Shown here is a 141-nucleotide sequence from Ruminococcus sp. CAG:108, a member of the family "Ribosomal protein L10 leader". NCBI's taxonomy places the organism under Bacteria, Bacillati, Clostridia, Oscillospiraceae, Ruminococcus. This family is a putative r-protein leader autoregulatory structure found in B. subtilis and other low-GC Gram-positive bacteria. It is located in the 5' untranslated regions of mRNAs encoding ribosomal proteins L10 and L12 (rplJ-rplL). A Rho-independent transcription terminator structure that is probably involved in regulation is included at the 3' end.

RNA sequence: UAUAUAAAAUUCGCUGUUCUAAAGACAGCAGGUGCGUAAGCGUAAAGGUUUUUCCUGCCUGCCGAGGAAGAUGCAAAUUACAUUGUUUUGUGUUUUUGCAGCCGUCCGAGGUAAAACGGACGGCUGUUUUUUAUGAACUGC
Numbered sequence: 001u002a003u004a005u006a007a008a009a010u011u012c013g014c015u016g017u018u019c020u021a022a023a024g025a026c027a028g029c030a031g032g033u034g035c036g037u038a039a040g041c042g043u044a045a046a047g048g049u050u051u052u053u054c055c056u057g058c059c060u061g062c063c064g065a066g067g068a069a070g071a072u073g074c075a076a077a078u079u080a081c082a083u084u085g086u087u088u089u090g091u092g093u094u095u096u097u098g099c100a101g102c103c104g105u106c107c108g109a110g111g112u113a114a115a116a117c118g119g120a121c122g123g124c125u126g127u128u129u130u131u132u133a134u135g136a137a138c139u140g141c
Stems, first nucleotide, its partner, number of pairs: 028062006034041002099126010